[Rfam]
RNA sequence: CUGUCCAGUCACGUAGUCAAAUAUCAGCUGGUAAUUCUGGGAUACUUAUUAUGCAGCCCAGGAUUCUUGCUGGUAUCCGGUUACGAACUGGC
Numbered sequence: 001c002u003g004u005c006c007a008g009u010c011a012c013g014u015a016g017u018c019a020a021a022u023a024u025c026a027g028c029u030g031g032u033a034a035u036u037c038u039g040g041g042a043u044a045c046u047u048a049u050u051a052u053g054c055a056g057c058c059c060a061g062g063a064u065u066c067u068u069g070c071u072g073g074u075a076u077c078c079g080g081u082u083a084c085g086a087a088c089u090g091g092c
Stems, first nucleotide, its partner, number of pairs: 013084006021076008030067002034064008
RNA: mir-283 microRNA precursor family